[Rfam]
RNA sequence: AAAAUAGCAUAGCCGAAUCACUUGAAGAGAGUGUACGGAGGACCCAUGUAGUUGGGGUGAACUUUGCAUUGAUGCAAAGCGGGACGACCUUCUCCCGAACCCGUCAGCUAACUCCGGAGGCGUGGGAGGAAAUCGUU
Numbered sequence: 001a002a003a004a005u006a007g008c009a010u011a012g013c014c015g016a017a018u019c020a021c022u023u024g025a026a027g028a029g030a031g032u033g034u035a036c037g038g039a040g041g042a043c044c045c046a047u048g049u050a051g052u053u054g055g056g057g058u059g060a061a062c063u064u065u066g067c068a069u070u071g072a073u074g075c076a077a078a079g080c081g082g083g084a085c086g087a088c089c090u091u092c093u094c095c096c097g098a099a100c101c102c103g104u105c106a107g108c109u110a111a112c113u114c115c116g117g118a119g120g121c122g123u124g125g126g127a128g129g130a131a132a133u134c135g136u137u
Stems, first nucleotide, its partner, number of pairs: 012121003019033005036116005045054002055102003063078004081096004
Dot-bracket structure: ...........(((....(((((.....)))))..(((((....((......))(((.....((((........))))..((((........))))...))).........)))))..)))................
RNA: c-di-AMP riboswitch aptamer (ydaO/yuaA leader)